[Rfam]
RNA sequence: AUUUCUCACGGUAAUGGAUUCUGCCGGGCAUCAAGCCGAACCGCUUCUCAGAUGAAGCUGAUGACUCCUACUCAACG
Numbered sequence: 001a002u003u004u005c006u007c008a009c010g011g012u013a014a015u016g017g018a019u020u021c022u023g024c025c026g027g028g029c030a031u032c033a034a035g036c037c038g039a040a041c042c043g044c045u046u047c048u049c050a051g052a053u054g055a056a057g058c059u060g061a062u063g064a065c066u067c068c069u070a071c072u073c074a075a076c077g
Stems, first nucleotide, its partner, number of pairs: 010025004016068003020064002043058004